[Rfam]
Shown here is an 80-nucleotide RNA from Medicago truncatula, a member of the family "MIR5269 microRNA precursor family".
RNA sequence: UUGGAUAAAAUCAAUAUGAAUCUCAUAUUUUGGAAAUAGAUCCCACAUAAAGUGGUAGAAUCCACAUUGAUUUCAUCCAA
Dot-bracket structure: ((((((.((((((((.((....(.((((((((...............))))))).).)....)).)))))))).))))))
Numbered sequence: 001u002u003g004g005a006u007a008a009a010a011u012c013a014a015u016a017u018g019a020a021u022c023u024c025a026u027a028u029u030u031u032g033g034a035a036a037u038a039g040a041u042c043c044c045a046c047a048u049a050a051a052g053u054g055g056u057a058g059a060a061u062c063c064a065c066a067u068u069g070a071u072u073u074c075a076u077c078c079a080a
Stems, first nucleotide, its partner, number of pairs: 001080006008073008017064002023058001025056001026054007

It scores 61 bits against the family's covariance model.